[Rfam]
RNA sequence: UCGAGGCUUUAUCUCUAAAUGGAUAAUAUUUUUGUCUUAAGGGAUACGAGUUUUUGAAAGUAAAGGAGCAAUAUCAACGCAGUUUCUAUUGCUCCUUU
Numbered sequence: 001u002c003g004a005g006g007c008u009u010u011a012u013c014u015c016u017a018a019a020u021g022g023a024u025a026a027u028a029u030u031u032u033u034g035u036c037u038u039a040a041g042g043g044a045u046a047c048g049a050g051u052u053u054u055u056g057a058a059a060g061u062a063a064a065g066g067a068g069c070a071a072u073a074u075c076a077a078c079g080c081a082g083u084u085u086c087u088a089u090u091g092c093u094c095c096u097u098u
Stems, first nucleotide, its partner, number of pairs: 008023005062098012076084003
The family of this 98-nucleotide RNA sequence from Arachis hypogaea is "Plastid-psbA-1 3UTR RNA". The family's consensus secondary structure was predicted with LocARNA. By type it is a cis-regulatory element. Plastid psbA-1 is a non-coding RNA (ncRNA) present in plastids. It was identified in inverted repeat sequences in the 3 prime untranslate region (3UTR) of photosystem II quinone-binding protein (psbA).